[Rfam]
RNA: MIR7502 microRNA precursor family
Organism: Gossypium barbadense
RNA sequence: UGUUGAAAAUUUUAUCUAUUUCUACUGUUAAAAUUUGGUCAUUGUACGUCAACAUGAGGUAUAAGUUAUACGUGACACAUCAUGUGUAACUAUCUAGUUUUCUAUUAGCAAGGCUAGUUUUUAACAGUAGAAAGAAAUGAAAAUUUUAACC
Numbered sequence: 001u002g003u004u005g006a007a008a009a010u011u012u013u014a015u016c017u018a019u020u021u022c023u024a025c026u027g028u029u030a031a032a033a034u035u036u037g038g039u040c041a042u043u044g045u046a047c048g049u050c051a052a053c054a055u056g057a058g059g060u061a062u063a064a065g066u067u068a069u070a071c072g073u074g075a076c077a078c079a080u081c082a083u084g085u086g087u088a089a090c091u092a093u094c095u096a097g098u099u100u101u102c103u104a105u106u107a108g109c110a111a112g113g114c115u116a117g118u119u120u121u122u123a124a125c126a127g128u129a130g131a132a133a134g135a136a137a138u139g140a141a142a143a144u145u146u147u148a149a150c151c
Base pairs, nucleotide, nucleotide: 002150003149004148005147006146007145008144010142011141012140013139014138015137019133020132021131022130023129024128025127026126028124029123030122031121032120033119
Dot-bracket structure: .(((((((.((((((...((((((((.((((((.....................................................................................)))))).))))))))...)))))).))))))).